Shown here is a 137-nucleotide RNA from Perca fluviatilis, a member of the family "Small nucleolar RNA SNORA5". Its Rfam clan is "SNORA5 clan".
[Rfam]
RNA sequence: UGCAGCCUUGUCAUAUUCGGCGUGUGUUCUUUUCAGUGGACUUCACUGGCCAAAAUGGCUGCCACAGUCACUGUAGUUCAUGGGCCCCUACUCCUUACAUCGUGGGCAGUGGGGAUAAAUAUGUACUACAGACAGAU
Dot-bracket structure: .((((............(((.(...((((........))))..).)))..........))))..........((((((......(((..((.................)).)))........).)))))........
Numbered sequence: 001u002g003c004a005g006c007c008u009u010g011u012c013a014u015a016u017u018c019g020g021c022g023u024g025u026g027u028u029c030u031u032u033u034c035a036g037u038g039g040a041c042u043u044c045a046c047u048g049g050c051c052a053a054a055a056u057g058g059c060u061g062c063c064a065c066a067g068u069c070a071c072u073g074u075a076g077u078u079c080a081u082g083g084g085c086c087c088c089u090a091c092u093c094c095u096u097a098c099a100u101c102g103u104g105g106g107c108a109g110u111g112g113g114g115a116u117a118a119a120u121a122u123g124u125a126c127u128a129c130a131g132a133c134a135g136a137u
Stems, first nucleotide, its partner, number of pairs: 002062004018048003022044001026041004073129005078123001085114003090110002
NCBI's taxonomy places the organism under Eukaryota, Metazoa, Craniata, Percoidei, Perca.
Gene Ontology terms of the family: RNA processing and nucleolus.
By type it is an H/ACA-box small nucleolar RNA.
Rfam's curators write: ACA5 is a member of the H/ACA class of snoRNA that guide the sites of modification of uridines to pseudouridines.